[Rfam]
Overview:
A member of the RNA family "Glycine riboswitch aptamer" from Rhizobium sp. Root482, 88 nucleotides long. The match comes from Rfam's covariance-model search (66 bits). The source organism's lineage runs through Bacteria, Pseudomonadati, Alphaproteobacteria, Hyphomicrobiales and Rhizobium. Gene Ontology term of the family: glycine biosynthetic process.
RNA sequence: CCGAUCUUGUUGGGAGAAUCCGGCGCAUGCCGGUGCCGAAGGAGCAACCGCCCCGGAAACUCUCAGGCCAAAGGACCGACAAGGUGCC
Number, nucleotide and partner (000 for none) at each position: 001c000002c000003g000004a000005u000006c083007u082008u081009g080010u079011u078012g077013g076014g000015a000016g000017a000018a000019u000020c033021c032022g031023g030024c000025g000026c000027a000028u000029g000030c023031c022032g021033g020034u000035g068036c067037c066038g064039a063040a000041g000042g062043a061044g060045c000046a000047a000048c056049c055050g000051c000052c000053c000054c000055g049056g048057a000058a000059a000060c044061u043062c042063u039064c038065a000066g037067g036068c035069c000070a000071a000072a000073g000074g000075a000076c013077c012078g011079a010080c009081a008082a007083g006084g000085u000086g000087c000088c000